Rfam assigns this 267-nucleotide sequence from Anaerococcus vaginalis to the family "Bacterial large signal recognition particle RNA".
Rfam classes the family as a non-coding RNA gene.
Rfam links the family to the GO terms signal recognition particle, plasma membrane targeting and SRP-dependent cotranslational protein targeting to membrane, signal sequence recognition.
The signal recognition particle (SRP) is a universally conserved ribonucleoprotein involved in the co-translational targeting of proteins to membranes.
A reference for the family is Rosenblad et al. (2003), "SRPDB: Signal Recognition Particle Database", Nucleic Acids Res.
Clan: SRP clan.
[Rfam]
RNA sequence: AUGCACUAGAUGGGGAGUUAGCGGUGCCUUGUAACCUGCAAUCCGCUAUAGCAGGAUUGAAUUCCCAAGUUAGGAUUUUAAAAUAUAUAGUCUGCCUUAAAUAAGCGGUGUUGAUUGAUGGGUCUUACGCAAUAGGAAACUAUGAACCAUGUCAGGACGGGAACGUAGCAGCAUUAAGUAGAUCUUCUUAUGUGCCGUAAGGUCACCUAUCAUGAGCUGGCUGUUUAAGUAACGUAUAGAUUUUAAUUUACGAGCUUGGGUGUGCUU
Numbered sequence: 001a002u003g004c005a006c007u008a009g010a011u012g013g014g015g016a017g018u019u020a021g022c023g024g025u026g027c028c029u030u031g032u033a034a035c036c037u038g039c040a041a042u043c044c045g046c047u048a049u050a051g052c053a054g055g056a057u058u059g060a061a062u063u064c065c066c067a068a069g070u071u072a073g074g075a076u077u078u079u080a081a082a083a084u085a086u087a088u089a090g091u092c093u094g095c096c097u098u099a100a101a102u103a104a105g106c107g108g109u110g111u112u113g114a115u116u117g118a119u120g121g122g123u124c125u126u127a128c129g130c131a132a133u134a135g136g137a138a139a140c141u142a143u144g145a146a147c148c149a150u151g152u153c154a155g156g157a158c159g160g161g162a163a164c165g166u167a168g169c170a171g172c173a174u175u176a177a178g179u180a181g182a183u184c185u186u187c188u189u190a191u192g193u194g195c196c197g198u199a200a201g202g203u204c205a206c207c208u209a210u211c212a213u214g215a216g217c218u219g220g221c222u223g224u225u226u227a228a229g230u231a232a233c234g235u236a237u238a239g240a241u242u243u244u245a246a247u248u249u250a251c252g253a254g255c256u257u258g259g260g261u262g263u264g265c266u267u
Base pairs, nucleotide, nucleotide: 001267003265004264005263006262009058010057011056012030013029014028015027017025018024019023035055036054037053038052039051064260065259066258067257068256069255070254073251074248075247076246077245080244081243082242083241084240086238087237088236089235093231094230097228098227099226100225101224102223105221106220107218108217109216116212117211118210119209120208121207122206123205124201125200126199127198128197129196130192131191133190134189135188136187137186138183140181141180142179143178149174150173151172152171157166158165159164
Dot-bracket structure: (.((((..(((((((.(((...))).))))....(((((...........)))))))).....(((((((..(((((..(((((.((((...((..((((((..(((((......((((((((((((((((.((((((.((((.....((((....(((....)))....))))...)))).)..)))))))...))))))...))))))))...))).)).)))))).))...)))).)))))))))..)..))))))).)))).)

Pairs were carried over by alignment from the consensus structure, which is taken from published work.